[Rfam]
Nucleotides: 142
Stems, first nucleotide, its partner, number of pairs: 003046004007041003016036005049101007058090001060089003065084002068082003102141002105138011117126003
Number, partner (000 for none) and nucleotide at each position: 001000a002000u003046c004045g005044g006043c007041g008040u009039u010000g011000c012000u013000g014000g015000u016036g017035a018034g019033c020032g021000c022000u023000c024000c025000a026000c027000g028000a029000g030000a031000g032020u033019g034018u035017u036016c037000g038000c039009g040008a041007c042000u043006g044005c045004c046003g047000a048000a049101g050100u051099c052098g053097c054096u055095u056000a057000u058090c059000u060089g061088c062087u063000u064000u065084u066083g067000a068082c069081c070080a071000c072000g073000g074000a075000u076000g077000u078000a079000c080070u081069g082068g083066c084065a085000c086000u087062g088061g089060u090058g091000u092000g093000a094000a095055g096054a097053g098052c099051g100050a101049u102141g103140u104000u105138g106137g107136a108135a109134a110133g111132g112131u113130c114129g115128g116000u117126g118125c119124g120000g121000u122000u123000u124119c125118g126117c127000c128115c129114c130113g131112g132111c133110c134109u135108u136107u137106u138105u139000u140103a141102u142000u
Rfam assigns this 142-nucleotide RNA sequence from Rhizobium leguminosarum to the family "Alphaproteobacterial sRNA ar35". The sequence is in the family's curated seed alignment. Rfam classes the family as a small RNA. A reference for the family is del Val et al. (2012), "A survey of sRNA families in alpha-proteobacteria", RNA Biol. Lineage of the source: Bacteria > Alphaproteobacteria > Rhizobiaceae > Rhizobium > Rhizobium leguminosarum bv. trifolii. The pairing is the family consensus, mapped onto this sequence.